A member of the RNA family "U5 spliceosomal RNA" from Dioscorea zingiberensis, 109 nucleotides long.
Taxonomically the source falls in Dioscorea (Eukaryota, Viridiplantae, Mesangiospermae, Liliopsida).
The match comes from Rfam's covariance-model search (86 bits).
RNA sequence: AGCUGCGUGGCGAGCUCAAAGCGAACUAUUCUUUCGCCUUUUACUAAAGAGUACCGUGUGCUCGCCACAUCAAGCAGCAUGCAUCAAUUUUUUUAAGGGUUUAUGCCUU
Dot-bracket structure: ..((((.((((((((.((........((((((((...........))))))))...)).))))))))......))))................................